Rfam assigns this 118-nucleotide RNA from Paenibacillus radicis to the family "Bacillus sRNA ncr1015". Lineage of the source: Bacteria > Bacillati > Bacillota > Caryophanales > Paenibacillus.
[Rfam]
RNA sequence: UUGUAAGAUACGAUAACUAUGCCUGAUUUAUCUUAAUAAAAUUGCAAUCUGAUUAUAUCAUCCUGUUUGUUUAUACGCAAUAAUUAAAGGACCUGAGUGUUUUCAGGUUCUUUUUUUG
Numbered sequence: 001u002u003g004u005a006a007g008a009u010a011c012g013a014u015a016a017c018u019a020u021g022c023c024u025g026a027u028u029u030a031u032c033u034u035a036a037u038a039a040a041a042u043u044g045c046a047a048u049c050u051g052a053u054u055a056u057a058u059c060a061u062c063c064u065g066u067u068u069g070u071u072u073a074u075a076c077g078c079a080a081u082a083a084u085u086a087a088a089g090g091a092c093c094u095g096a097g098u099g100u101u102u103u104c105a106g107g108u109u110c111u112u113u114u115u116u117u118g
Base pairs, nucleotide, nucleotide: 035074038071039070041066042065044062086113087112088111089110090109091108092107093106094105095104096103

It scores 80 bits against the family's covariance model. The literature on the family includes a 2010 paper in Nucleic Acids Res by Irnov et al., "Identification of regulatory RNAs in Bacillus subtilis".